This 148-nucleotide RNA sequence from Mangrovibacter sp. MFB070 belongs to the Rfam family "Glm Y RNA activator of glmS mRNA". Pairs were carried over by alignment from the consensus structure, which is taken from published work. By type it is a small RNA.
RNA sequence: AGUGGCUCAUUCACCUGUUUAUGUCAGCCCCAUUUGGCCGCGCUACAUAAAAACCGAAUGACGCACAAAAAGGUGCCUGCCGUCCAACUACUGAUUAUUGCAUUGCUUUAUCAGGCUCAGGGCGAAACGUUGAGUUAGGCACCGCCUG
Numbered sequence: 001a002g003u004g005g006c007u008c009a010u011u012c013a014c015c016u017g018u019u020u021a022u023g024u025c026a027g028c029c030c031c032a033u034u035u036g037g038c039c040g041c042g043c044u045a046c047a048u049a050a051a052a053a054c055c056g057a058a059u060g061a062c063g064c065a066c067a068a069a070a071a072g073g074u075g076c077c078u079g080c081c082g083u084c085c086a087a088c089u090a091c092u093g094a095u096u097a098u099u100g101c102a103u104u105g106c107u108u109u110a111u112c113a114g115g116c117u118c119a120g121g122g123c124g125a126a127a128c129g130u131u132g133a134g135u136u137a138g139g140c141a142c143c144g145c146c147u148g
Stems, first nucleotide, its partner, number of pairs: 005064002007061006019050006026044003072143007081124005092113004097108001126136003
Dot-bracket structure: ....((((((((......((((((.(((.............))))))))).....)))))).)).......(((((((..(((((......((((.(..........).))))......))))).(((.....)))))))))).....

Notes:
It scores 135 bits against the family's covariance model. Rfam's curators write: This family consists of a number of bacterial RNA genes of around 167 bases in length. The tke1 RNA gene is present in Escherichia coli, Shigella flexneri, Yersinia pestis and Salmonella species where it is found between the yfhK and purL genes. The function of this RNA is unknown.